[Rfam]
RNA: Bacterial RNase P class A
Organism: Rhodococcus sp. EPR-157
RNA sequence: CGAGUCGGUUGGGCGGCUGCGGCACGGAGAACUGGCGGAGCGAUUCCGGCAAGCUCCGAGCCGAGGAAAGUCCGGACUCCACAGAGCAGGGCGGUUGCUAACGGCAACCCGAGGUGACUCGCGGGACAGUGCCACAGAAAACAGACCGCCUGCACCACACUUUUUUCGGAAAGUGCAGUGCAGGUCAGGGUGAAACGGUGCGGUAAGAGCGCACCAGCACCCCAGGUGACUGGGGUGGCUAGGUAAACCCCGCCCGGAGCAAGGUCGAAGGCCGAACCUUUUCCGAAAGGUCCGGCUGCGCAGGUGUUCGAGGGCUGCUCGCCCGAGCCUGCGGGUUGACUGCUCGAGGUACCCGGCGACGGUGUGCCCAGAUGGAUGGUCGUCGUUCUGCGCGCGCUCUCGAGCGUGCGUGGUUCACAGGAUCCGGCUUAUAUGCCGACUCGUUCG
Numbered sequence: 001c002g003a004g005u006c007g008g009u010u011g012g013g014c015g016g017c018u019g020c021g022g023c024a025c026g027g028a029g030a031a032c033u034g035g036c037g038g039a040g041c042g043a044u045u046c047c048g049g050c051a052a053g054c055u056c057c058g059a060g061c062c063g064a065g066g067a068a069a070g071u072c073c074g075g076a077c078u079c080c081a082c083a084g085a086g087c088a089g090g091g092c093g094g095u096u097g098c099u100a101a102c103g104g105c106a107a108c109c110c111g112a113g114g115u116g117a118c119u120c121g122c123g124g125g126a127c128a129g130u131g132c133c134a135c136a137g138a139a140a141a142c143a144g145a146c147c148g149c150c151u152g153c154a155c156c157a158c159a160c161u162u163u164u165u166u167c168g169g170a171a172a173g174u175g176c177a178g179u180g181c182a183g184g185u186c187a188g189g190g191u192g193a194a195a196c197g198g199u200g201c202g203g204u205a206a207g208a209g210c211g212c213a214c215c216a217g218c219a220c221c222c223c224a225g226g227u228g229a230c231u232g233g234g235g236u237g238g239c240u241a242g243g244u245a246a247a248c249c250c251c252g253c254c255c256g257g258a259g260c261a262a263g264g265u266c267g268a269a270g271g272c273c274g275a276a277c278c279u280u281u282u283c284c285g286a287a288a289g290g291u292c293c294g295g296c297u298g299c300g301c302a303g304g305u306g307u308u309c310g311a312g313g314g315c316u317g318c319u320c321g322c323c324c325g326a327g328c329c330u331g332c333g334g335g336u337u338g339a340c341u342g343c344u345c346g347a348g349g350u351a352c353c354c355g356g357c358g359a360c361g362g363u364g365u366g367c368c369c370a371g372a373u374g375g376a377u378g379g380u381c382g383u384c385g386u387u388c389u390g391c392g393c394g395c396g397c398u399c400u401c402g403a404g405c406g407u408g409c410g411u412g413g414u415u416c417a418c419a420g421g422a423u424c425c426g427g428c429u430u431a432u433a434u435g436c437c438g439a440c441u442c443g444u445u446c447g
Stems, first nucleotide, its partner, number of pairs: 001443009011432001012384007020063004025058004068430003072427005077259004084320004089255005094108005109123001110121004124250002129248002131244003146189002148185008197215006217239001218237008263341004300332006312324004348367001353362003